The record is a 138-nucleotide sequence from Gracilibacillus halotolerans, which matches "Ribosomal protein L10 leader" in Rfam. By type it is a cis-regulatory leader. For this family Rfam cites "Specific interactions of the L10(L12)4 ribosomal protein complex with mRNA, rRNA, and L11" (Iben and Draper, Biochemistry, 2008). The organism belongs to Gracilibacillus, within Bacteria. The family's consensus secondary structure was predicted with CMfinder. A search with the family's covariance model found it, with a score of 79 bits. Rfam links the family to the GO term regulation of gene expression.
RNA sequence: AAAGUUAAAUACAUUAUACCGUAGACAGCAGGUGCUAUUGCUUAAUAUCCUGCCGAGGUGUUUCUGGAUAAAAGGUGCAGUUCUCUGUGCCUAACUAGAACCUCCCAUGUCUACGGGAGGUUCUUUUUCUUUAACGGU
Numbered sequence: 001a002a003a004g005u006u007a008a009a010u011a012c013a014u015u016a017u018a019c020c021g022u023a024g025a026c027a028g029c030a031g032g033u034g035c036u037a038u039u040g041c042u043u044a045a046u047a048u049c050c051u052g053c054c055g056a057g058g059u060g061u062u063u064c065u066g067g068a069u070a071a072a073a074g075g076u077g078c079a080g081u082u083c084u085c086u087g088u089g090c091c092u093a094a095c096u097a098g099a100a101c102c103u104c105c106c107a108u109g110u111c112u113a114c115g116g117g118a119g120g121u122u123c124u125u126u127u128u129c130u131u132u133a134a135c136g137g138u
Stems, first nucleotide, its partner, number of pairs: 028053005034041002098123009